[Rfam]
RNA sequence: AACUUACUUAAUUUAAAUCACACACAUUUCGACACAUGUUUCGGGGUGCUCCACGGUUUGCUUAAGCAAAUUGAGGGAGUCGAAUUCAUGGGGAAUGUGGAGGCCUAAC
Numbered sequence: 001a002a003c004u005u006a007c008u009u010a011a012u013u014u015a016a017a018u019c020a021c022a023c024a025c026a027u028u029u030c031g032a033c034a035c036a037u038g039u040u041u042c043g044g045g046g047u048g049c050u051c052c053a054c055g056g057u058u059u060g061c062u063u064a065a066g067c068a069a070a071u072u073g074a075g076g077g078a079g080u081c082g083a084a085u086u087c088a089u090g091g092g093g094a095a096u097g098u099g100g101a102g103g104c105c106u107a108a109c
Base pairs, nucleotide, nucleotide: 023099024098025097026096027095028094029093030092035090036089037088038087040084041083042082043081048080049079050078051077052076

The family of this 109-nucleotide sequence from Vibrio ezurae is "t44 RNA". Rfam classes the family as a small RNA.